[Rfam]
RNA sequence: UCUAAAACUCUAGAUACAGGUUGAAAACUGAAAUAGGGUCUGGGCUGCAAUAAACUUCAGGACAGAUUCCGACUUCUCUGUUUCUACUAACUUUUGAACUUCAAAACUGCAGAAUUGGGUUUCUAGCUCUUCAUAAAAGUUUUAGGUCAAUGUCUUAGCUUUCUAAC
Numbered sequence: 001u002c003u004a005a006a007a008c009u010c011u012a013g014a015u016a017c018a019g020g021u022u023g024a025a026a027a028c029u030g031a032a033a034u035a036g037g038g039u040c041u042g043g044g045c046u047g048c049a050a051u052a053a054a055c056u057u058c059a060g061g062a063c064a065g066a067u068u069c070c071g072a073c074u075u076c077u078c079u080g081u082u083u084c085u086a087c088u089a090a091c092u093u094u095u096g097a098a099c100u101u102c103a104a105a106a107c108u109g110c111a112g113a114a115u116u117g118g119g120u121u122u123c124u125a126g127c128u129c130u131u132c133a134u135a136a137a138a139g140u141u142u143u144a145g146g147u148c149a150a151u152g153u154c155u156u157a158g159c160u161u162u163c164u165a166a167c
Stems, first nucleotide, its partner, number of pairs: 003165002006162002008158002012155005019148002021145005027140003036134001038132001042130003056126002060122004065116005071110001073109001079103002085097001
Rfam assigns this 167-nucleotide RNA sequence from Carya illinoinensis to the family "MIR2912 microRNA precursor family". Pairs were carried over by alignment from the consensus structure, which was predicted with RNAalifold. It scores 76 bits against the family's covariance model. Lineage of the source: Eukaryota > Streptophytina > Gunneridae > fabids > Carya.